Rfam assigns this 66-nucleotide RNA from Thrips palmi to the family "mir-2 microRNA precursor family". The base pairs follow the family's consensus structure, which was predicted with PFOLD. It scores 61 bits against the family's covariance model. The literature on the family includes a 2001 paper in Cell by Ambros, "microRNAs: tiny regulators with great potential". Rfam 15.1 lists 918 matches to the family in 280 species. Taxonomically the source falls in Thrips (Eukaryota, Metazoa, Ecdysozoa, Neoptera).

[Rfam]
RNA sequence: CUGCUCACAAAGUGGCUGUCAUGUGUGCUUUUAAUAUCAUAUCACAGCCAGCUUUGAUGAGCGGGG
Numbered sequence: 001c002u003g004c005u006c007a008c009a010a011a012g013u014g015g016c017u018g019u020c021a022u023g024u025g026u027g028c029u030u031u032u033a034a035u036a037u038c039a040u041a042u043c044a045c046a047g048c049c050a051g052c053u054u055u056g057a058u059g060a061g062c063g064g065g066g
Stems, first nucleotide, its partner, number of pairs: 005060003008056005013050007021042001024041003
Source information: Rfam links the family to the GO terms miRNA-mediated post-transcriptional gene silencing and RISC complex.